Rfam assigns this 372-nucleotide RNA from Enterococcus hermanniensis to the family "Bacterial RNase P class B". From the family's description: Ribonuclease P (RNase P) is a ubiquitous endoribonuclease, found in archaea, bacteria and eukarya as well as chloroplasts and mitochondria. It scores 354 bits against the family's covariance model.
RNA sequence: AUUUUCGGGUGAUCGCGGUUUGCUAUACGCAAGCUGAGGAAAGUCCAUGCUCGCACAGACUGAGAUGUCUGUAGUGUUCGUGCUUAGCGAAAAAAUAAGCUAAGGUACUUCUUAGGAAGUAACGGCAGAAAAAAGGGCUAAGGAGCAAUCUAUGCCUAAGUAUUCUUGAAAGUGCCACAGUGACGAAGCAUUUUGAGAAAUCAAAAUGGUGGAACGCGGUAAACCCCUCGAGCGAGCAACCCAAACUAUGGUAGGGGCGCUUUUUCUAAGGAAAUGAACGAUGAAAGAGACGACAUUAUGUCGGAGAUAGAUGAUUACCACGACGAUUACACUUCCCUGAGUUAAUCGCCGUACAAAACAUGGCUUACAGAA
Numbered sequence: 001a002u003u004u005u006c007g008g009g010u011g012a013u014c015g016c017g018g019u020u021u022g023c024u025a026u027a028c029g030c031a032a033g034c035u036g037a038g039g040a041a042a043g044u045c046c047a048u049g050c051u052c053g054c055a056c057a058g059a060c061u062g063a064g065a066u067g068u069c070u071g072u073a074g075u076g077u078u079c080g081u082g083c084u085u086a087g088c089g090a091a092a093a094a095a096u097a098a099g100c101u102a103a104g105g106u107a108c109u110u111c112u113u114a115g116g117a118a119g120u121a122a123c124g125g126c127a128g129a130a131a132a133a134a135g136g137g138c139u140a141a142g143g144a145g146c147a148a149u150c151u152a153u154g155c156c157u158a159a160g161u162a163u164u165c166u167u168g169a170a171a172g173u174g175c176c177a178c179a180g181u182g183a184c185g186a187a188g189c190a191u192u193u194u195g196a197g198a199a200a201u202c203a204a205a206a207u208g209g210u211g212g213a214a215c216g217c218g219g220u221a222a223a224c225c226c227c228u229c230g231a232g233c234g235a236g237c238a239a240c241c242c243a244a245a246c247u248a249u250g251g252u253a254g255g256g257g258c259g260c261u262u263u264u265u266c267u268a269a270g271g272a273a274a275u276g277a278a279c280g281a282u283g284a285a286a287g288a289g290a291c292g293a294c295a296u297u298a299u300g301u302c303g304g305a306g307a308u309a310g311a312u313g314a315u316u317a318c319c320a321c322g323a324c325g326a327u328u329a330c331a332c333u334u335c336c337c338u339g340a341g342u343u344a345a346u347c348g349c350c351g352u353a354c355a356a357a358a359c360a361u362g363g364c365u366u367a368c369a370g371a372a
Base pairs, nucleotide, nucleotide: 004372005371006370007368008319009318010317011316012315013314014313016036017035018034019033020032021031041366042365043364045363046362047361048360049359050236051235052234053233054232055072056071057070058069059068060067078231079230080229082227083104084103085102086101087100088099105123106121107120108119109118110117111116124226125225127166128165129164130163135157136156137155138154142151143150144149172224173223174220175219176218189208190207191206192205193204194203195202196201240256241255242254260289261288262287263286264285265284266283291303292302293301294300295299321351322350324348325347326346327345328344329343